[Rfam]
RNA sequence: CCACAGCGCGGCGACUGGCGCACAGGGAAUCGACCCUGAGGAAGCCGCGCGAGGCAGAACCUUCGAGGUGCCGAACGCCUGGGCACCCCGG
Numbered sequence: 001c002c003a004c005a006g007c008g009c010g011g012c013g014a015c016u017g018g019c020g021c022a023c024a025g026g027g028a029a030u031c032g033a034c035c036c037u038g039a040g041g042a043a044g045c046c047g048c049g050c051g052a053g054g055c056a057g058a059a060c061c062u063u064c065g066a067g068g069u070g071c072c073g074a075a076c077g078c079c080u081g082g083g084c085a086c087c088c089c090g091g
Base pairs, nucleotide, nucleotide: 006050007049008048009047010046011045012044015041016040017079018078019077020076024037025036026035027034068086069085070084071083072082

The record is a 91-nucleotide sequence from Streptomyces sp. YIM 121038, which matches "ZMP/ZTP riboswitch aptamer (pfl RNA motif)" in Rfam. A reference for the family is Tran et al. (2020), "Parallel Discovery Strategies Provide a Basis for Riboswitch Ligand Design", Cell Chem Biol. The organism belongs to Streptomyces, within Bacteria.